[Rfam]
Rfam assigns this 99-nucleotide RNA from Heyndrickxia ginsengihumi to the family "TPP riboswitch aptamer (THI element)".
Pairs were carried over by alignment from the consensus structure, which is taken from published work.
It scores 64 bits against the family's covariance model.
RNA sequence: CGUAACCACAAGGGGAGCUUUAAGCUGAGAGUGAACGAUUGUUCUGACCCUUAGAACCUGUUAGUUAGCACUAGUGUAGGGAUGUGGUAUUCAUAAGAU
Numbered sequence: 001c002g003u004a005a006c007c008a009c010a011a012g013g014g015g016a017g018c019u020u021u022a023a024g025c026u027g028a029g030a031g032u033g034a035a036c037g038a039u040u041g042u043u044c045u046g047a048c049c050c051u052u053a054g055a056a057c058c059u060g061u062u063a064g065u066u067a068g069c070a071c072u073a074g075u076g077u078a079g080g081g082a083u084g085u086g087g088u089a090u091u092c093a094u095a096a097g098a099u
Stems, first nucleotide, its partner, number of pairs: 006087005011051004016045001017025003033044004057080004061074004